[Rfam]
RNA sequence: GCGGUACCGGUUCCCGCCCGCGCGCACCCCGUGUGCGACUGCGCGCAAAGCCGUACGAAUCACUUGGCGACCCGGCGACC
Numbered sequence: 001g002c003g004g005u006a007c008c009g010g011u012u013c014c015c016g017c018c019c020g021c022g023c024g025c026a027c028c029c030c031g032u033g034u035g036c037g038a039c040u041g042c043g044c045g046c047a048a049a050g051c052c053g054u055a056c057g058a059a060u061c062a063c064u065u066g067g068c069g070a071c072c073c074g075g076c077g078a079c080c
Stems, first nucleotide, its partner, number of pairs: 003080003007075004015069004020064001
RNA: L31-Actinobacteria ribosomal protein leader
Organism: Nonomuraea soli